[Rfam]
RNA sequence: GGUCAAGAGCGCCAGCGCAAGCCCGAGCUCGCUGGCCGGCAACCCUCCUCCGCGGUGGGGUGCCCCUCGGGUAGAGACCAGGCCGCGCCGGGAUGUCCGGCCGGCAAGCGCGGACC
Numbered sequence: 001g002g003u004c005a006a007g008a009g010c011g012c013c014a015g016c017g018c019a020a021g022c023c024c025g026a027g028c029u030c031g032c033u034g035g036c037c038g039g040c041a042a043c044c045c046u047c048c049u050c051c052g053c054g055g056u057g058g059g060g061u062g063c064c065c066c067u068c069g070g071g072u073a074g075a076g077a078c079c080a081g082g083c084c085g086c087g088c089c090g091g092g093a094u095g096u097c098c099g100g101c102c103g104g105c106a107a108g109c110g111c112g113g114a115c116c
Stems, first nucleotide, its partner, number of pairs: 001079004009037001011036006020029002038064003043060003047055002082105004087101005
Dot-bracket structure: ((((....(.((((((...((......)).)))))))(((..(((.((.....))..))).)))...........))))..((((.(((((.....)))))))))...........
A member of the RNA family "SAM (S-adenosyl methionine) riboswitch aptamer" from Pseudofrankia inefficax, 116 nucleotides long.
Rfam describes the family as follows. SAM-IV is a mRNA element that regulates gene expression via direct sensing of S-adenosylmethionine (SAM or AdoMet). SAM-IV riboswitches share conserved nucleotide positions with the previously described SAM-I riboswitches sequence analysis and molecular recognition experiments suggest that SAM-I and SAM-IV riboswitches share similar ligand binding sites, but have different scaffolds.
The base pairs follow the family's consensus structure, which is taken from published work.